[Rfam]
RNA sequence: CGACACCGGGCGGGAGAGUUCCGCCAUACGUGGGUCGGACGCCGAAGGGGCAACUUCCUCAGAACCUCUCAGGCGCCAGGACCGCCCGGCCGAG
Numbered sequence: 001c002g003a004c005a006c007c008g009g010g011c012g013g014g015a016g017a018g019u020u021c022c023g024c025c026a027u028a029c030g031u032g033g034g035u036c037g038g039a040c041g042c043c044g045a046a047g048g049g050g051c052a053a054c055u056u057c058c059u060c061a062g063a064a065c066c067u068c069u070c071a072g073g074c075g076c077c078a079g080g081a082c083c084g085c086c087c088g089g090c091c092g093a094g
Stems, first nucleotide, its partner, number of pairs: 006089008020039004041074003044070002048068003054062002
RNA: Glycine riboswitch aptamer